The family of this 119-nucleotide RNA from Panicum virgatum is "mir-399 microRNA precursor family".
mir-399 was identified in both Arabidopsis thaliana and Oryza sativa computationally and was later experimentally verified. mir-399 is thought to target mRNAs coding for a phosphatase transporter.
Its family is annotated with miRNA-mediated post-transcriptional gene silencing and RISC complex in the Gene Ontology.
The base pairs follow the family's consensus structure, which was predicted with PFOLD.
A reference for the family is Jones-Rhoades and Bartel (2004), "Computational Identification of Plant MicroRNAs and Their Targets, Including a Stress-Induced miRNA", Mol Cell.
RNA sequence: GCCUGCAUUACUGGGCGAGUCUUCCUUGGCAGUGUUCGCGUCUGCAGCGCUACAGCUGCAGCUGCAGAGCGGUCGAUCGGCCGGCCCCUGCCAAAGGAGAAUUGCCCAGCCAUGCAGCU
Numbered sequence: 001g002c003c004u005g006c007a008u009u010a011c012u013g014g015g016c017g018a019g020u021c022u023u024c025c026u027u028g029g030c031a032g033u034g035u036u037c038g039c040g041u042c043u044g045c046a047g048c049g050c051u052a053c054a055g056c057u058g059c060a061g062c063u064g065c066a067g068a069g070c071g072g073u074c075g076a077u078c079g080g081c082c083g084g085c086c087c088c089u090g091c092c093a094a095a096g097g098a099g100a101a102u103u104g105c106c107c108a109g110c111c112a113u114g115c116a117g118c119u
Base pairs, nucleotide, nucleotide: 005115006114007113008112011109012108013107014106015105016104017103018102021099022098023097024096027093028092029091030090031089032088034086